[Rfam]
RNA sequence: GAGAGAGGAAGAGCAGCCGCCGCGACAGCAAGUCGUGAGGAAAGUCCCUCCACCACUGGACACACGGAUGCCGAAAUGGCAUAGGGCGAGAGUUCUGGCUCUGACACAGAAACGUAACCACGAUUGUGCCAAUGCAAUGAUGCCGGAAGGCUGAGGUCGCAUGUCGUUUGGAUGAAACGGUGAAUCCCCGUGGGUGCAAGUCAACACAGGGCAAAAAGCGCGAGAGCGGAGUCCAGCCGUGCCCGGGUAUGGCGCGUAGUCGAAUGCUGCUAUGAACAGAAGGGGGCUUACUCUCCUCACUC
Numbered sequence: 001g002a003g004a005g006a007g008g009a010a011g012a013g014c015a016g017c018c019g020c021c022g023c024g025a026c027a028g029c030a031a032g033u034c035g036u037g038a039g040g041a042a043a044g045u046c047c048c049u050c051c052a053c054c055a056c057u058g059g060a061c062a063c064a065c066g067g068a069u070g071c072c073g074a075a076a077u078g079g080c081a082u083a084g085g086g087c088g089a090g091a092g093u094u095c096u097g098g099c100u101c102u103g104a105c106a107c108a109g110a111a112a113c114g115u116a117a118c119c120a121c122g123a124u125u126g127u128g129c130c131a132a133u134g135c136a137a138u139g140a141u142g143c144c145g146g147a148a149g150g151c152u153g154a155g156g157u158c159g160c161a162u163g164u165c166g167u168u169u170g171g172a173u174g175a176a177a178c179g180g181u182g183a184a185u186c187c188c189c190g191u192g193g194g195u196g197c198a199a200g201u202c203a204a205c206a207c208a209g210g211g212c213a214a215a216a217a218g219c220g221c222g223a224g225a226g227c228g229g230a231g232u233c234c235a236g237c238c239g240u241g242c243c244c245g246g247g248u249a250u251g252g253c254g255c256g257u258a259g260u261c262g263a264a265u266g267c268u269g270c271u272a273u274g275a276a277c278a279g280a281a282g283g284g285g286g287c288u289u290a291c292u293c294u295c296c297u298c299a300c301u302c
Stems, first nucleotide, its partner, number of pairs: 001302003005298005010292002012271006021037005042289003046286005051196004063192005068082005083096005097187002102183001104181002118171003121166004126162004142151002200253004209244005
Dot-bracket structure: (((.(((((((((((((...(((((.......)))))....[[[.[[[[[((((........((((((((((.....)))))(((((....)))))((...(.((............(((((((.((((............((......)).......))))))))..)))........)).)..)))))))))))...((((.....(((((..........................))))).....))))............))))))..........]]]]]]]].)).))))).)))
Notes:
Archaeal RNase P: a 302-nucleotide RNA from Candidatus Methanogaster sp. Its family is annotated with multimeric ribonuclease P complex, ribonuclease P activity and tRNA processing in the Gene Ontology. Lineage of the source: Archaea > Methanobacteriota > Methanosarcinales > ANME-2 cluster > Candidatus Methanogaster. It is annotated as a ribozyme. Rfam's curators write: Ribonuclease P (RNase P) is a ubiquitous endoribonuclease, found in archaea, bacteria and eukarya as well as chloroplasts and mitochondria. The family's consensus secondary structure is taken from published work.